RNA sequence: CACUUGUUAAUAAGAUGUUUCUUAUUAAAAAUGUCCGAUCACAUGGACUCCAUAGUGAUUUCAAUGCAUUAUUGAGAUAAGCU
Numbered sequence: 001c002a003c004u005u006g007u008u009a010a011u012a013a014g015a016u017g018u019u020u021c022u023u024a025u026u027a028a029a030a031a032u033g034u035c036c037g038a039u040c041a042c043a044u045g046g047a048c049u050c051c052a053u054a055g056u057g058a059u060u061u062c063a064a065u066g067c068a069u070u071a072u073u074g075a076g077a078u079a080a081g082c083u
Stems, first nucleotide, its partner, number of pairs: 003081006